The record is an 86-nucleotide RNA sequence from Columba livia, which matches "Small nucleolar RNA SNORD127" in Rfam. By type it is a C/D-box small nucleolar RNA. The match comes from Rfam's covariance-model search (77 bits). The literature on the family includes a 2006 paper in Nucleic Acids Res by Yang et al., "snoSeeker: an advanced computational package for screening of guide and orphan snoRNA genes in the human genome". The family has 13 seed sequences and 541 matches in Rfam 15.1. The base pairs follow the family's consensus structure, which was predicted with WAR.
RNA sequence: UGGCAACAAUGAUGACAGGAAUUGUAACUGUACGUGACGUCUCGUUACCACAUGGAGACACCAGUCCCUCUAAACUGAUGUUGCCG
Numbered sequence: 001u002g003g004c005a006a007c008a009a010u011g012a013u014g015a016c017a018g019g020a021a022u023u024g025u026a027a028c029u030g031u032a033c034g035u036g037a038c039g040u041c042u043c044g045u046u047a048c049c050a051c052a053u054g055g056a057g058a059c060a061c062c063a064g065u066c067c068c069u070c071u072a073a074a075c076u077g078a079u080g081u082u083g084c085c086g
Stems, first nucleotide, its partner, number of pairs: 001086007